Source information: mir-33 microRNA precursor family: a 68-nucleotide RNA sequence from Ophiophagus hannah.
RNA sequence: CUGUAGUGCAUUGUAGUUGCAUUGCAUGUUCUGGAAAUACUCAUGCAAUGUUUCUGCAGUGCAGUUCA
Number, nucleotide and partner (000 for none) at each position: 001c000002u068003g067004u000005a000006g065007u063008g062009c061010a060011u059012u058013g057014u056015a055016g054017u000018u000019g051020c000021a049022u048023u047024g046025c045026a044027u043028g000029u000030u000031c000032u000033g000034g000035a000036a000037a000038u000039a000040c000041u000042c000043a027044u026045g025046c024047a023048a022049u021050g000051u019052u000053u000054c016055u015056g014057c013058a012059g011060u010061g009062c008063a007064g000065u006066u000067c003068a002

About this RNA: NCBI's taxonomy places the organism under Eukaryota, Metazoa, Deuterostomia, Episquamata, Ophiophagus.